Histone 3' UTR stem-loop: a 46-nucleotide RNA from Albula goreensis.
A search with the family's covariance model found it, with a score of 35 bits.
By type it is a cis-regulatory element.
NCBI's taxonomy places the organism under Eukaryota, Eumetazoa, Gnathostomata, Teleostei, Albula.
[Rfam]
RNA sequence: CUAAAGGCUCUUUUCAGAGCCACCCACAACUUCUGAAAUCGCAAAU
Numbered sequence: 001c002u003a004a005a006g007g008c009u010c011u012u013u014u015c016a017g018a019g020c021c022a023c024c025c026a027c028a029a030c031u032u033c034u035g036a037a038a039u040c041g042c043a044a045a046u
Base pairs, nucleotide, nucleotide: 006021007020008019009018010017011016